[Rfam]
Shown here is an 82-nucleotide RNA from Handroanthus impetiginosus, a member of the family "Small nucleolar RNA J33". A reference for the family is Chen et al. (2003), "The high diversity of snoRNAs in plants: identification and comparative study of 120 snoRNA genes from Oryza sativa", Nucleic Acids Res. The match comes from Rfam's covariance-model search (74 bits). By type it is a C/D-box small nucleolar RNA.
RNA sequence: CUGUGAGAGGUAUGAUGUAUUACUACAGGGCUCUUAAAAUGCUUUCGUUUCUUGAUUCUGCUGCAGAAAUGGAUAUACGAGG
Numbered sequence: 001c002u003g004u005g006a007g008a009g010g011u012a013u014g015a016u017g018u019a020u021u022a023c024u025a026c027a028g029g030g031c032u033c034u035u036a037a038a039a040u041g042c043u044u045u046c047g048u049u050u051c052u053u054g055a056u057u058c059u060g061c062u063g064c065a066g067a068a069a070u071g072g073a074u075a076u077a078c079g080a081g082g
Base pairs, nucleotide, nucleotide: 001082002081004079005078006076